[Rfam]
RNA sequence: GCAGUCGCCACGUUGGUGCCCGCUGGUAGGGAAAACGUGGUGAUGGGUCCCCGCCCUUGCAGGGGCGGGGCAAGGCGUUCGGCGUUCGAGAGCUGGUACCUCUCGGGCGCCGUCG
Number, nucleotide and partner (000 for none) at each position: 001g000002c000003a000004g044005u043006c000007g000008c040009c039010a038011c037012g036013u035014u034015g000016g000017u000018g000019c030020c029021c000022g000023c000024u000025g000026g000027u000028a000029g020030g019031g000032a000033a000034a014035a013036c012037g011038u010039g009040g008041u000042g000043a005044u004045g000046g000047g000048u000049c000050c069051c068052c067053g066054c065055c064056c063057u062058u000059g000060c000061a000062g057063g056064g055065g054066c053067g052068g051069g050070g000071c000072a000073a000074g000075g000076c000077g000078u000079u000080c112081g111082g110083c109084g108085u107086u106087c105088g104089a103090g102091a101092g100093c000094u000095g000096g000097u000098a000099c000100c092101u091102c090103u089104c088105g087106g086107g085108c084109g083110c082111c081112g080113u000114c000115g000
RNA: Streptomyces RNA 6925